[Rfam]
This 77-nucleotide sequence belongs to the Rfam family "Actino-ugpB RNA". The family's RNA type in Rfam is small RNA. The family's consensus secondary structure is taken from published work.
RNA sequence: GUCCAGAAGGACAACACUCACACCACGAUUUUUAAGUUGUGCCAGUGCAUCGCCGGCAUUGCCGGCUUCAAGGCACG
Numbered sequence: 001g002u003c004c005a006g007a008a009g010g011a012c013a014a015c016a017c018u019c020a021c022a023c024c025a026c027g028a029u030u031u032u033u034a035a036g037u038u039g040u041g042c043c044a045g046u047g048c049a050u051c052g053c054c055g056g057c058a059u060u061g062c063c064g065g066c067u068u069c070a071a072g073g074c075a076c077g
Base pairs, nucleotide, nucleotide: 011040012039013038014037015036043061044060045059046058047057048056